[Rfam]
Shown here is a 105-nucleotide sequence from Flavobacterium geliluteum, a member of the family "Flavo-1 RNA". By type it is a small RNA.
RNA sequence: UUUUUGCGUUAGGGAUAAUAACGGCAUCCUUUUGUGAUAGCCUAAACGUCUUUCUGAACAACUAAUAGUCUAGAACAAAAGAUAUAGUGGAUAGCCCGACCCUUG
Number, nucleotide and partner (000 for none) at each position: 001u000002u000003u000004u000005u000006g000007c000008g000009u000010u000011a000012g097013g096014g095015a000016u093017a092018a000019u000020a000021a088022c087023g000024g000025c000026a083027u082028c081029c000030u000031u000032u078033u077034g076035u075036g000037a000038u072039a071040g000041c000042c000043u000044a000045a000046a000047c000048g000049u000050c000051u000052u000053u000054c000055u000056g000057a000058a000059c000060a000061a000062c000063u000064a000065a000066u000067a000068g000069u000070c000071u039072a038073g000074a000075a035076c034077a033078a032079a000080a000081g028082a027083u026084a000085u000086a000087g022088u021089g000090g000091a000092u017093a016094g000095c014096c013097c012098g000099a000100c000101c000102c000103u000104u000105g000